[Rfam]
This 196-nucleotide sequence from Heterocephalus glaber belongs to the Rfam family "Small nucleolar RNA SNORA73 family".
Rfam describes the family as follows. U17 (SNORA73A and SNORA73B) also known as E1 belongs to the H/ACA class of small nucleolar RNAs (snoRNAs). Vertebrate U17 is intron-encoded and ranges in length from 200-230 nucleotides, longer than most snoRNAs. It is one of the most abundant snoRNAs in human cells and is essential for the cleavage of pre-rRNA within the 5' external transcribed spacer (ETS). This cleavage leads to the formation of 18S rRNA. Regions of the U17 RNA are complementary to rRNA and act as guides for RNA/RNA interactions, although these regions do not seem to be well conserved between organisms.
The family's RNA type in Rfam is H/ACA-box small nucleolar RNA.
For this family Rfam cites "5'ETS rRNA processing facilitated by four small RNAs: U14, E3, U17, and U3" (Enright et al., RNA, 1996).
Its family is annotated with RNA processing and nucleolus in the Gene Ontology.
The organism belongs to Heterocephalus, within Eukaryota.
RNA sequence: ACAACAUGCAUACCCCAGAAGUCACUCUCCCCAGGCUCUGUCCAGGUGGUGUAGGGGAGCAUAGGGUUCUACCCCAUGAUGUAAGUUCCUUUCCAAAGUGUUGGAGAAGUGGGACUUUGUGUCUGUGCCUGUAUAUUUCUACAACUUUUCAGUCCUUUGUGCAAUAACUGAGGCAAUAACUACACAGGAAACAAUG
Numbered sequence: 001a002c003a004a005c006a007u008g009c010a011u012a013c014c015c016c017a018g019a020a021g022u023c024a025c026u027c028u029c030c031c032c033a034g035g036c037u038c039u040g041u042c043c044a045g046g047u048g049g050u051g052u053a054g055g056g057g058a059g060c061a062u063a064g065g066g067u068u069c070u071a072c073c074c075c076a077u078g079a080u081g082u083a084a085g086u087u088c089c090u091u092u093c094c095a096a097a098g099u100g101u102u103g104g105a106g107a108a109g110u111g112g113g114a115c116u117u118u119g120u121g122u123c124u125g126u127g128c129c130u131g132u133a134u135a136u137u138u139c140u141a142c143a144a145c146u147u148u149u150c151a152g153u154c155c156u157u158u159g160u161g162c163a164a165u166a167a168c169u170g171a172g173g174c175a176a177u178a179a180c181u182a183c184a185c186a187g188g189a190a191a192c193a194a195u196g
Base pairs, nucleotide, nucleotide: 002103003102004101005100006099007098008043010041011040012039014035015034017028018027019026047095048094049093055089056088057087058086061082062081063080064077128188129187130186131185132184134182147173148172149171150170152162153161155159